Shown here is a 129-nucleotide sequence from Microcaecilia unicolor, a member of the family "Small Cajal body specific RNA 15". The organism belongs to Microcaecilia, within Eukaryota. Rfam 15.1 lists 635 matches to the family in 528 species. Pairs were carried over by alignment from the consensus structure, which was predicted with RNAfold. A search with the family's covariance model found it, with a score of 76 bits. On this family, see Darzacq et al., EMBO J 2002: "Cajal body-specific small nuclear RNAs: a novel class of 2'-O-methylation and pseudouridylation guide RNAs". From the family's description: scaRNAs are a specific class of small nuclear RNAs which localise to the Cajal bodies and guide the modification of RNA polymerase II transcribed spliceosomal RNAs U1, U2, U4, U5 and U12. ACA45 belongs to the H/ACA box class of guide RNAs as it has the predicted hairpin-hinge-hairpin-tail structure, the conserved H/ACA-box motifs and is found associated with GAR1. ACA45 is predicted to guide the pseudouridylation of residue U37 of the U2 spliceosomal snRNA.
RNA sequence: GCGGAGGACUAAGAAAGUAGAGUCAAGGAAGUCAAAUGCUCUAUGGAUACUAUCCUCCAAAAGUAAAUGGUAGAAGAACAGGCCUGUCUUCAAGGUGGAGUCAGGAGCCUACUUAAUCUACCAACAGUG
Dot-bracket structure: ..((((((.((......((((((....(....)....))))))....))...))))))..........(((((((....(((((((...............))))..)))...)..)))))).......